Shown here is a 105-nucleotide RNA from Prunus yedoensis, a member of the family "MIR6274 microRNA precursor family".
RNA sequence: GAAUAACAUUAUUUUGCUAUCUUCGGCCAAUAAUACAAUAACAUGCAAAAAAGCUAUCCUACAUGUUAUUGCAUUAUUGGUCGGGAAUAGCAAAAAGUGUUAUCC
Numbered sequence: 001g002a003a004u005a006a007c008a009u010u011a012u013u014u015u016g017c018u019a020u021c022u023u024c025g026g027c028c029a030a031u032a033a034u035a036c037a038a039u040a041a042c043a044u045g046c047a048a049a050a051a052a053g054c055u056a057u058c059c060u061a062c063a064u065g066u067u068a069u070u071g072c073a074u075u076a077u078u079g080g081u082c083g084g085g086a087a088u089a090g091c092a093a094a095a096a097g098u099g100u101u102a103u104c105c
Stems, first nucleotide, its partner, number of pairs: 003103003012095009022085013036071010047060001050057001
Overview:
Gene Ontology terms of the family: RISC complex and miRNA-mediated post-transcriptional gene silencing. Lineage of the source: Eukaryota > Magnoliopsida > Rosaceae > Prunus > Prunus yedoensis.